Nucleotides: 062
Base pairs, nucleotide, nucleotide: 010025011024012023013022016053017052018051019050020049021048033043034042035041
Number, partner (000 for none) and nucleotide at each position: 001000a002000u003000c004000a005000a006000u007000g008000a009000u010025g011024g012023c013022g014000a015000u016053g017052g018051a019050g020049u021048u022013c023012g024011c025010c026000u027000u028000u029000a030000a031000c032000c033043g034042c035041c036000c037000u038000c039000g040000g041035g042034g043033c044000u045000g046000a047000u048021g049020a050019c051018u052017c053016c054000u055000u056000a057000c058000u059000u060000g061000c062000g